[Rfam]
RNA sequence: GCUGGGAGUCGUAGCGGGCCCCUGUAAUCCAGCGAUUGGAGGCUAGAGUCGGCGGAUGGUGUGCGGUUAGGGGUCCUUGUCAUUGGUGGUACCAUGACGAUCGGGCGUCCGCACUAAGCUUGGCGUCAAUAUGGUCCACCUGGAGGAGUCCGGGAGGGCCAGGUUGCGUGAAGAGGGCGGAAACCGGGCCAGGGGGGAAACCCAGCAGCCAAAACCUCCCGCGUCAAGCAGUAGUGGGACUGCGCCUGUGAAUGGGCCCUGGUGACGAGCCUGGCCUAUAAUCACUAGACCCGACUUUUU
Numbered sequence: 001g002c003u004g005g006g007a008g009u010c011g012u013a014g015c016g017g018g019c020c021c022c023u024g025u026a027a028u029c030c031a032g033c034g035a036u037u038g039g040a041g042g043c044u045a046g047a048g049u050c051g052g053c054g055g056a057u058g059g060u061g062u063g064c065g066g067u068u069a070g071g072g073g074u075c076c077u078u079g080u081c082a083u084u085g086g087u088g089g090u091a092c093c094a095u096g097a098c099g100a101u102c103g104g105g106c107g108u109c110c111g112c113a114c115u116a117a118g119c120u121u122g123g124c125g126u127c128a129a130u131a132u133g134g135u136c137c138a139c140c141u142g143g144a145g146g147a148g149u150c151c152g153g154g155a156g157g158g159c160c161a162g163g164u165u166g167c168g169u170g171a172a173g174a175g176g177g178c179g180g181a182a183a184c185c186g187g188g189c190c191a192g193g194g195g196g197g198a199a200a201c202c203c204a205g206c207a208g209c210c211a212a213a214a215c216c217u218c219c220c221g222c223g224u225c226a227a228g229c230a231g232u233a234g235u236g237g238g239a240c241u242g243c244g245c246c247u248g249u250g251a252a253u254g255g256g257c258c259c260u261g262g263u264g265a266c267g268a269g270c271c272u273g274g275c276c277u278a279u280a281a282u283c284a285c286u287a288g289a290c291c292c293g294a295c296u297u298u299u300u
Stems, first nucleotide, its partner, number of pairs: 001043003004023003008019003028040003045298008057287005065276007076269011088258002092255004102248007109238002112236005118229009127166004132161006139154006167173001175219003179215001187210003194203003
RNA: Metazoan signal recognition particle RNA
Organism: Notodromas monacha